[Rfam]
This 125-nucleotide RNA from Clostridium polyendosporum belongs to the Rfam family "Ribosomal protein L20 leader". The family's consensus secondary structure was predicted with CMfinder. The match comes from Rfam's covariance-model search (61 bits). A reference for the family is Zengel and Lindahl (1994), "Diverse mechanisms for regulating ribosomal protein synthesis in Escherichia coli", Prog Nucleic Acid Res Mol Biol. From the family's description: This family is a putative r-protein leader autoregulatory structure found in B. subtilis and other low-GC Gram-positive bacteria.
RNA sequence: UGUAUUAAGAAGAAACCGCCGUUUCUCACCUUGCAGCAAGGCUAGUAAGGUUAGUGUUAUUACUUGUGAGAGUUUUCUUUGAAAGUGGUAAUAGAGGACGGCUUAUGCCGUCCUUUUAUUAUUUG
Numbered sequence: 001u002g003u004a005u006u007a008a009g010a011a012g013a014a015a016c017c018g019c020c021g022u023u024u025c026u027c028a029c030c031u032u033g034c035a036g037c038a039a040g041g042c043u044a045g046u047a048a049g050g051u052u053a054g055u056g057u058u059a060u061u062a063c064u065u066g067u068g069a070g071a072g073u074u075u076u077c078u079u080u081g082a083a084a085g086u087g088g089u090a091a092u093a094g095a096g097g098a099c100g101g102c103u104u105a106u107g108c109c110g111u112c113c114u115u116u117u118a119u120u121a122u123u124u125g
Base pairs, nucleotide, nucleotide: 011026012025013024014023015022016021028051029050030049033046034045036042037041095114096113097112098111099110100109101108102107